[Rfam]
RNA sequence: UCGGCAUCUGUGAUGUUAUCCUAGUUUAUCAUCCUUGCACUUUGACUGUGAAUGAAGAAAAUCACGGGGAAGAAAAACUGAGAUGCCA
Numbered sequence: 001u002c003g004g005c006a007u008c009u010g011u012g013a014u015g016u017u018a019u020c021c022u023a024g025u026u027u028a029u030c031a032u033c034c035u036u037g038c039a040c041u042u043u044g045a046c047u048g049u050g051a052a053u054g055a056a057g058a059a060a061a062u063c064a065c066g067g068g069g070a071a072g073a074a075a076a077a078c079u080g081a082g083a084u085g086c087c088a
Stems, first nucleotide, its partner, number of pairs: 003087006
RNA: Small nucleolar RNA snoR26
Organism: Zostera marina